[Rfam]
RNA: speF leader
RNA sequence: UUCCGGCUUUCCAUCAGCCGGGGUUACUGAAGAGGCACACCUUCAUUGCCGGAAGUGCGGUUGGGAUUUUCCCUCCAAUCCAUGGCAGACAAAGCCGAACUAUGCCGCUGUCGUGGCGUUGGUUCAAAAUUUGCGCAUCGAGCGCUUGCUAUGGUU
Numbered sequence: 001u002u003c004c005g006g007c008u009u010u011c012c013a014u015c016a017g018c019c020g021g022g023g024u025u026a027c028u029g030a031a032g033a034g035g036c037a038c039a040c041c042u043u044c045a046u047u048g049c050c051g052g053a054a055g056u057g058c059g060g061u062u063g064g065g066a067u068u069u070u071c072c073c074u075c076c077a078a079u080c081c082a083u084g085g086c087a088g089a090c091a092a093a094g095c096c097g098a099a100c101u102a103u104g105c106c107g108c109u110g111u112c113g114u115g116g117c118g119u120u121g122g123u124u125c126a127a128a129a130u131u132u133g134c135g136c137a138u139c140g141a142g143c144g145c146u147u148g149c150u151a152u153g154g155u156u
Stems, first nucleotide, its partner, number of pairs: 001023008034050004057136003084096002104119002108115001